[Rfam]
RNA sequence: UUAAGGGAUAGCCUGAUCAGCGAAAAGCCGUAUCUCCAACGGUUUCCCUUAAUUUUUAUCUUGGAGA
Dot-bracket structure: ((((((((..((.......)).....(((((.[[[[[[))))).)))))))).........]]]]]]
Shown here is a 67-nucleotide RNA sequence from Candidatus Brocadia sinica, a member of the family "int-alpA RNA".
Pairs were carried over by alignment from the consensus structure, which is taken from published work.
The family's RNA type in Rfam is small RNA.
A search with the family's covariance model found it, with a score of 36 bits.